RNA sequence: ACUUUCUCAUAGCUCUGCAAUGGGAUGGAAUCCGAAGCCCCUCGAUGGAUAAUACAGGCUCUCCCAUCCAACUCCUAUUCCGACACGUCCUCGUCGCGCAGAGUGGUAACGUGUGCCACCACAUAUCCAAGCUUGGGUACACGGGGUUGACCCAACCCCUUGGGCGGAUGGUGGCAUACGGCAAACCAGGAGGGG
Numbered sequence: 001a002c003u004u005u006c007u008c009a010u011a012g013c014u015c016u017g018c019a020a021u022g023g024g025a026u027g028g029a030a031u032c033c034g035a036a037g038c039c040c041c042u043c044g045a046u047g048g049a050u051a052a053u054a055c056a057g058g059c060u061c062u063c064c065c066a067u068c069c070a071a072c073u074c075c076u077a078u079u080c081c082g083a084c085a086c087g088u089c090c091u092c093g094u095c096g097c098g099c100a101g102a103g104u105g106g107u108a109a110c111g112u113g114u115g116c117c118a119c120c121a122c123a124u125a126u127c128c129a130a131g132c133u134u135g136g137g138u139a140c141a142c143g144g145g146g147u148u149g150a151c152c153c154a155a156c157c158c159c160u161u162g163g164g165c166g167g168a169u170g171g172u173g174g175c176a177u178a179c180g181g182c183a184a185a186c187c188a189g190g191a192g193g194g195g
Base pairs, nucleotide, nucleotide: 011104014101023069024068025067026066027065028064030062032058033057073195074194075193076192078191079190081189086096087095089106090105110180111179112178113177114176115175116174117173119171120170125169126168127167128166133155134154135153136152137151138150157164158163
About this RNA:
drz-agam-2-2 ribozyme: a 195-nucleotide sequence from Anopheles gambiae. Rfam 15.1 lists 486 matches to the family in 10 species. NCBI's taxonomy places the organism under Eukaryota, Eumetazoa, Mandibulata, Insecta, Anopheles gambiae.